[Rfam]
RNA sequence: GGGGACGUUCUUGGAUUCGACAGGGGUCCCCGAGCUUAUUAAGCGUGUCGGAGGGUUGGCUCCGUCAUCAACACAUUUCGGUUAAAUAUAACUGACAAAUCAAACAAUAAUUUCGCAGUAGCUGCGUAAUAGCCACUGCAUCGCCUAACAGCAUCUCCUACGUGCUGUUAACGCGAUUCAACCCUAGUAGGAUAUGCUAAACACUGCCGCUUGAAGUCUGUUUAGAUGAAAUAUAAUCAAGCUAGUAUCAUGUUGGUUGUUUAUUGCUUAGCAUGAUGCGAAAAUUAUCAAUAAACUACACACGUAGAAAGAUUUGUAUCAGGACCUCUGGACGCGGGUUCGAAUCCCGCCGUCUCCAUUA
Numbered sequence: 001g002g003g004g005a006c007g008u009u010c011u012u013g014g015a016u017u018c019g020a021c022a023g024g025g026g027u028c029c030c031c032g033a034g035c036u037u038a039u040u041a042a043g044c045g046u047g048u049c050g051g052a053g054g055g056u057u058g059g060c061u062c063c064g065u066c067a068u069c070a071a072c073a074c075a076u077u078u079c080g081g082u083u084a085a086a087u088a089u090a091a092c093u094g095a096c097a098a099a100u101c102a103a104a105c106a107a108u109a110a111u112u113u114c115g116c117a118g119u120a121g122c123u124g125c126g127u128a129a130u131a132g133c134c135a136c137u138g139c140a141u142c143g144c145c146u147a148a149c150a151g152c153a154u155c156u157c158c159u160a161c162g163u164g165c166u167g168u169u170a171a172c173g174c175g176a177u178u179c180a181a182c183c184c185u186a187g188u189a190g191g192a193u194a195u196g197c198u199a200a201a202c203a204c205u206g207c208c209g210c211u212u213g214a215a216g217u218c219u220g221u222u223u224a225g226a227u228g229a230a231a232u233a234u235a236a237u238c239a240a241g242c243u244a245g246u247a248u249c250a251u252g253u254u255g256g257u258u259g260u261u262u263a264u265u266g267c268u269u270a271g272c273a274u275g276a277u278g279c280g281a282a283a284a285u286u287a288u289c290a291a292u293a294a295a296c297u298a299c300a301c302a303c304g305u306a307g308a309a310a311g312a313u314u315u316g317u318a319u320c321a322g323g324a325c326c327u328c329u330g331g332a333c334g335c336g337g338g339u340u341c342g343a344a345u346c347c348c349g350c351c352g353u354c355u356c357c358a359u360u361a
Base pairs, nucleotide, nucleotide: 001357002356003355004354005353006352007351021330022329023328024327025326026325027324028323029322032319034317035316038313039312040311044304045303046302047301048300049064050063051062052061053060054083055082056081057080058079059078118139119138120137121136124133125132140177141176142175143174144173147169148168149167150166151165152164153163154162156192157191158190159189160188161187197225198224199223200222201221202220203219209242210241211240212239213238214237245279246278247277248276249275250274251273252272253271254270255268256267257266259296260295261294262293265290334350335349336348337347338346
The family of this 361-nucleotide sequence from Staphylococcus epidermidis is "transfer-messenger RNA". By type it is a non-coding RNA gene. The sequence is in the family's curated seed alignment. NCBI's taxonomy places the organism under Bacteria, Bacillati, Bacillota, Caryophanales, Staphylococcus epidermidis.